The family of this 133-nucleotide RNA sequence from Phrynocephalus forsythii is "Small Cajal body specific RNA 24". By type it is a small Cajal body RNA. From the family's description: scaRNAs are a specific class of small nuclear RNAs which localise to the Cajal bodies and guide the modification of RNA polymerase II transcribed spliceosomal RNAs U1, U2, U4, U5 and U12. ACA12 belongs to the H/ACA box class of guide RNAs as it has the predicted hairpin-hinge-hairpin-tail structure,the conserved H/ACA-box motifs and is found associated with GAR1. On this family, see Darzacq et al., EMBO J 2002: "Cajal body-specific small nuclear RNAs: a novel class of 2'-O-methylation and pseudouridylation guide RNAs". The source organism's lineage runs through Eukaryota, Sauria, Acrodonta, Agamidae and Phrynocephalus.
RNA sequence: UGGAUACUUAAGGUUUCCUUCAUUGUCCCUUUUUUGUGGUGACAACUGUACUAAAGUAUCCCAGAGUAACACAGAAGCUAUCUGUUCAUUCCUGGAUAGUUAACAGGUAUGGAUCGUUCCACUUCUGACACCU
Numbered sequence: 001u002g003g004a005u006a007c008u009u010a011a012g013g014u015u016u017c018c019u020u021c022a023u024u025g026u027c028c029c030u031u032u033u034u035u036g037u038g039g040u041g042a043c044a045a046c047u048g049u050a051c052u053a054a055a056g057u058a059u060c061c062c063a064g065a066g067u068a069a070c071a072c073a074g075a076a077g078c079u080a081u082c083u084g085u086u087c088a089u090u091c092c093u094g095g096a097u098a099g100u101u102a103a104c105a106g107g108u109a110u111g112g113a114u115c116g117u118u119c120c121a122c123u124u125c126u127g128a129c130a131c132c133u
Stems, first nucleotide, its partner, number of pairs: 002061008011052001022047001024045001026042002029039002072127006091107004

It scores 89 bits against the family's covariance model. The family has 23 seed sequences and 689 matches in Rfam 15.1.